[Rfam]
RNA sequence: GAUAUAAAUGGGCAAAACUGAUGAAAAUUAGUGACGCAAAGCUUUGAAGUCUAAGGCACACGCUAUGAUUGUUCGGCUGCAAAA
Numbered sequence: 001g002a003u004a005u006a007a008a009u010g011g012g013c014a015a016a017a018c019u020g021a022u023g024a025a026a027a028u029u030a031g032u033g034a035c036g037c038a039a040a041g042c043u044u045u046g047a048a049g050u051c052u053a054a055g056g057c058a059c060a061c062g063c064u065a066u067g068a069u070u071g072u073u074c075g076g077c078u079g080c081a082a083a084a
Stems, first nucleotide, its partner, number of pairs: 012037002017032006040078004046074003049069003056063002

The record is an 84-nucleotide sequence from Sedimentibacter saalensis, which matches "c-di-GMP-I riboswitch aptamer" in Rfam. GEMM was predicted in a large-scale screen for bacterial structured RNA regulatory elements. Clan: c-di-GMP_I riboswitch clan. The base pairs follow the family's consensus structure, which is taken from published work. The organism belongs to Sedimentibacter, within Bacteria.